[Rfam]
The family of this 76-nucleotide sequence from Myotis myotis is "mir-9229 microRNA precursor family".
RNA sequence: GAGACAUUCCUAUGGAGCAGGACUUGCUUCAGUGGGGCUUUGGUACUCAUGGAGUCUGCCCCUUGAGUGUGUUGCU
Numbered sequence: 001g002a003g004a005c006a007u008u009c010c011u012a013u014g015g016a017g018c019a020g021g022a023c024u025u026g027c028u029u030c031a032g033u034g035g036g037g038c039u040u041u042g043g044u045a046c047u048c049a050u051g052g053a054g055u056c057u058g059c060c061c062c063u064u065g066a067g068u069g070u071g072u073u074g075c076u
Stems, first nucleotide, its partner, number of pairs: 001075001003073005009067001011065002014062002017059003021056003029053002032050005037044002
Lineage of the source: Eukaryota > Gnathostomata > Dipnotetrapodomorpha > Eutheria > Myotis. The family has 7 seed sequences and 27,225 matches in Rfam 15.1. Pairs were carried over by alignment from the consensus structure, which was predicted with RNAalifold.